[Rfam]
RNA sequence: CGGCCAGCCCCAUCUGGAAGACUAGUGAUUUUGUUGUUGUCUUGUUGUACCCAACAACAAGUCCCAGUCUGCCGCACGGUGCUGGCCA
Numbered sequence: 001c002g003g004c005c006a007g008c009c010c011c012a013u014c015u016g017g018a019a020g021a022c023u024a025g026u027g028a029u030u031u032u033g034u035u036g037u038u039g040u041c042u043u044g045u046u047g048u049a050c051c052c053a054a055c056a057a058c059a060a061g062u063c064c065c066a067g068u069c070u071g072c073c074g075c076a077c078g079g080u081g082c083u084g085g086c087c088a
Stems, first nucleotide, its partner, number of pairs: 002087007010079002013076001015074003019070005025065001027063005033058006